RNA sequence: UCUGGACUGGUUCGUGAACUUCCCAGUAUAAAAAACCAAGUAUCU
Numbered sequence: 001u002c003u004g005g006a007c008u009g010g011u012u013c014g015u016g017a018a019c020u021u022c023c024c025a026g027u028a029u030a031a032a033a034a035a036c037c038a039a040g041u042a043u044c045u
Base pairs, nucleotide, nucleotide: 006027007026008025009024010023015038016037
The record is a 45-nucleotide sequence from Mediterraneibacter gnavus, which matches "PreQ1 (pre queuosine) riboswitch aptamer" in Rfam.
Gene Ontology term of the family: queuosine biosynthetic process.
The organism belongs to Mediterraneibacter gnavus, within Bacteria.